[Rfam]
RNA sequence: CGCAGUGUGAGGAGUAAAGCAAGAAGAAGCUCUUGGAGUCGAAACAUGGAAAGACGCCCGAGAGCUUUUUCGUU
Number, nucleotide and partner (000 for none) at each position: 001c000002g000003c000004a000005g000006u000007g000008u000009g000010a000011g000012g000013a000014g000015u072016a000017a000018a000019g000020c000021a000022a000023g071024a070025a069026g068027a067028a000029g000030c064031u063032c000033u000034u000035g059036g058037a000038g055039u054040c053041g000042a000043a000044a000045c000046a000047u000048g000049g000050a000051a000052a000053g040054a039055c038056g000057c000058c036059c035060g000061a000062g000063a031064g030065c000066u000067u027068u026069u025070u024071c023072g015073u000074u000
The record is a 74-nucleotide sequence from Elainella sp. C42_A2020_010, which matches "Cyano-1 RNA" in Rfam. The match comes from Rfam's covariance-model search (44 bits). It is annotated as a small RNA.